This 143-nucleotide sequence from Mus spicilegus belongs to the Rfam family "Small nucleolar RNA SNORA48". The snoRNA ACA 48 has been identified to guide pseudouridylation of the residue U3797 in the 28S rRNA subunit. Its family is annotated with RNA processing and nucleolus in the Gene Ontology.

RNA sequence: CCCCACAGCAGUGGGCAAAGAGACACCUUGCUGGUAGUGGUGUUCUUAUAUCAACCAGGGGCACAGCAGAUGGCAGUCCUUUGUCCAUCUUAGCUUGAUGCUUGGCUUGGUGGCCAACGCUGUGUUAUGUCUAGGACUCAUAA
Numbered sequence: 001c002c003c004c005a006c007a008g009c010a011g012u013g014g015g016c017a018a019a020g021a022g023a024c025a026c027c028u029u030g031c032u033g034g035u036a037g038u039g040g041u042g043u044u045c046u047u048a049u050a051u052c053a054a055c056c057a058g059g060g061g062c063a064c065a066g067c068a069g070a071u072g073g074c075a076g077u078c079c080u081u082u083g084u085c086c087a088u089c090u091u092a093g094c095u096u097g098a099u100g101c102u103u104g105g106c107u108u109g110g111u112g113g114c115c116a117a118c119g120c121u122g123u124g125u126u127a128u129g130u131c132u133a134g135g136a137c138u139c140a141u142a143a
Stems, first nucleotide, its partner, number of pairs: 001061004008056001012053003018047003022041001024039003083137004097131003103127003108122002111119002